A member of the RNA family "ffh sRNA" from Roseivivax sediminis, 52 nucleotides long.
The base pairs follow the family's consensus structure, which is taken from published work.
RNA sequence: CGUGCCCGGGAUCGCCCUCCGUCAGCGCGUUGCGCCCACGGGGGCACUUGUC
Numbered sequence: 001c002g003u004g005c006c007c008g009g010g011a012u013c014g015c016c017c018u019c020c021g022u023c024a025g026c027g028c029g030u031u032g033c034g035c036c037c038a039c040g041g042g043g044g045c046a047c048u049u050g051u052c
Base pairs, nucleotide, nucleotide: 016044017043018042019041020040021039022038025035026034027033028032